Record summary: This 106-nucleotide RNA from Bacillus solimangrovi belongs to the Rfam family "SAM riboswitch aptamer (S box leader)". Rfam's curators write: The SAM riboswitch is found upstream of a number of genes which code for proteins involved in methionine or cysteine biosynthesis in Gram-positive bacteria. The SAM riboswitch acts at the level of transcription termination control. The predicted structure consists of a complex stem-loop region followed by a single stem loop terminator region.
RNA sequence: UUCUUAUCAAGAGAGACGGAGGGAUCUGGCCCUACGAAGUCUCAGCAACCAGCCUAAAUGGUCAGGUGCUAACUCCAGCAAGUGUUUAAAGCUUGAUAGAUAAGAA
Numbered sequence: 001u002u003c004u005u006a007u008c009a010a011g012a013g014a015g016a017c018g019g020a021g022g023g024a025u026c027u028g029g030c031c032c033u034a035c036g037a038a039g040u041c042u043c044a045g046c047a048a049c050c051a052g053c054c055u056a057a058a059u060g061g062u063c064a065g066g067u068g069c070u071a072a073c074u075c076c077a078g079c080a081a082g083u084g085u086u087u088a089a090a091g092c093u094u095g096a097u098a099g100a101u102a103a104g105a106a
Base pairs, nucleotide, nucleotide: 001106002105003104004103005102006101007100008099013043014042015041016040017039021032022031023030026078027077028076029075044070045069046068047067049066050065052062053061054060074098079095080094081093082092083091
Taxonomically the source falls in Bacillus (Bacteria, Bacillati, Bacillota, Bacillaceae). It scores 94 bits against the family's covariance model. The base pairs follow the family's consensus structure, which is taken from published work.